[Rfam]
Rfam assigns this 275-nucleotide RNA sequence from Setomelanomma holmii to the family "A. fumigatus sRNA Afu_309".
Lineage of the source: Eukaryota > Opisthokonta > leotiomyceta > Dothideomycetes > Setomelanomma.
Rfam classes the family as a small RNA.
For this family Rfam cites "Small ncRNA transcriptome analysis from Aspergillus fumigatus suggests a novel mechanism for regulation of protein synthesis" (Jochl et al., Nucleic Acids Res, 2008).
A search with the family's covariance model found it, with a score of 122 bits.
The family's consensus secondary structure was predicted with WAR.
RNA sequence: CUCUCACCAACGACCUGUGUCAGCACUCCCGUCCGCCGUCAAAAGCGUGUUCGGUCGAGUGCUGGCAGUUCGUCCGUCCCCAUGGAGCCAUCUCUUGUCGAUAGGUGUCAAUUUCUGGACGACAGGUCGGAGAGUGAGUCGGCGCGUGCUAUGAAGCCUGAGCUUGCCUUUGGGUUUGAGCUCGGUGGAUGGGCGCGCCAGGCGGACUGAUUCCUGUUCCCUUUUGCUAGGCCGUUGGCCUUUGAUGCUUGGGACAAACCCAGUCGGCUACAUAC
Numbered sequence: 001c002u003c004u005c006a007c008c009a010a011c012g013a014c015c016u017g018u019g020u021c022a023g024c025a026c027u028c029c030c031g032u033c034c035g036c037c038g039u040c041a042a043a044a045g046c047g048u049g050u051u052c053g054g055u056c057g058a059g060u061g062c063u064g065g066c067a068g069u070u071c072g073u074c075c076g077u078c079c080c081c082a083u084g085g086a087g088c089c090a091u092c093u094c095u096u097g098u099c100g101a102u103a104g105g106u107g108u109c110a111a112u113u114u115c116u117g118g119a120c121g122a123c124a125g126g127u128c129g130g131a132g133a134g135u136g137a138g139u140c141g142g143c144g145c146g147u148g149c150u151a152u153g154a155a156g157c158c159u160g161a162g163c164u165u166g167c168c169u170u171u172g173g174g175u176u177u178g179a180g181c182u183c184g185g186u187g188g189a190u191g192g193g194c195g196c197g198c199c200a201g202g203c204g205g206a207c208u209g210a211u212u213c214c215u216g217u218u219c220c221c222u223u224u225u226g227c228u229a230g231g232c233c234g235u236u237g238g239c240c241u242u243u244g245a246u247g248c249u250u251g252g253g254a255c256a257a258a259c260c261c262a263g264u265c266g267g268c269u270a271c272a273u274a275c
Stems, first nucleotide, its partner, number of pairs: 011129008019066005025060004029054003033049001034047002075121005083110003087106003141199006156186003160183006167174002204268001205265005218254004226248002230240004